A member of the RNA family "6S / SsrS RNA" from Vreelandella subglaciescola, 184 nucleotides long. From the family's description: E. coli 6S RNA was the first non coding RNA to be sequenced, but its function was unknown until recently. It consists of 184 nucleotides that fold into an extended hairpin structure with a large single-stranded internal bulge. The 6S RNA specifically associates with RNA polymerase holoenzyme containing the sigma70 specificity factor. The literature on the family includes a 2000 paper in Cell by Wassarman and Storz, "6S RNA regulates E. coli RNA polymerase activity".
[Rfam]
RNA sequence: UGUUCUCUGGGGUGUGCGCCAGUCGUUAUAGUCCCUCGAGCCUAUGCGCAGUACCUAGGGCGGCCAUUGCUAGCCAGACCCGUGUGCAUGUCCGCGCGACGGAAAGCCUGACGGUCUGGCUGCGGCCACCCGACCUGAACCUUUAGGUUCAGGGCCAGAACGACAGCGGCACUUUGGAGAACUC
Numbered sequence: 001u002g003u004u005c006u007c008u009g010g011g012g013u014g015u016g017c018g019c020c021a022g023u024c025g026u027u028a029u030a031g032u033c034c035c036u037c038g039a040g041c042c043u044a045u046g047c048g049c050a051g052u053a054c055c056u057a058g059g060g061c062g063g064c065c066a067u068u069g070c071u072a073g074c075c076a077g078a079c080c081c082g083u084g085u086g087c088a089u090g091u092c093c094g095c096g097c098g099a100c101g102g103a104a105a106g107c108c109u110g111a112c113g114g115u116c117u118g119g120c121u122g123c124g125g126c127c128a129c130c131c132g133a134c135c136u137g138a139a140c141c142u143u144u145a146g147g148u149u150c151a152g153g154g155c156c157a158g159a160a161c162g163a164c165a166g167c168g169g170c171a172c173u174u175u176g177g178a179g180a181a182c183u184c
Base pairs, nucleotide, nucleotide: 002182003181004180005179006178007177008176009175010174011173012172013171014170015169017168018167019166033154034153035152038150039149040148041147042146058131059130060129062127063126064125065124067122069121074119075118076117077116078115079114080113086107087106091103092102093101094100
Dot-bracket structure: .((((((((((((((.(((.............(((..(((((...............(((.((((.(.(....(((((((.....((...((((.....))))..)).....))))))).)).)))).)))..............))))).)))...........)))))))))))))))))..
It is annotated as a non-coding RNA gene.